Small nucleolar RNA U83B: a 90-nucleotide RNA sequence from Scopus umbretta. The match comes from Rfam's covariance-model search (41 bits). A reference for the family is Duga et al. (2000), "The intron-containing L3 ribosomal protein gene (RPL3): sequence analysis and identification of U43 and of two novel intronic small nucleolar RNAs", Biochim Biophys Acta. Pairs were carried over by alignment from the consensus structure. Its family is annotated with nucleolus and RNA processing in the Gene Ontology. By type it is a C/D-box small nucleolar RNA. Rfam's curators write: U83B belongs to the C/D family of snoRNAs.
[Rfam]
RNA sequence: CCUGUUGAGUGAUGAGGCACAGAAGAAGCACUGAGCAGUACCUGACACCUGUGGGGGGUAGCUCUGCACCGCAUUUCUUCUGAGAGCAGC
Numbered sequence: 001c002c003u004g005u006u007g008a009g010u011g012a013u014g015a016g017g018c019a020c021a022g023a024a025g026a027a028g029c030a031c032u033g034a035g036c037a038g039u040a041c042c043u044g045a046c047a048c049c050u051g052u053g054g055g056g057g058g059u060a061g062c063u064c065u066g067c068a069c070c071g072c073a074u075u076u077c078u079u080c081u082g083a084g085a086g087c088a089g090c
Stems, first nucleotide, its partner, number of pairs: 002089004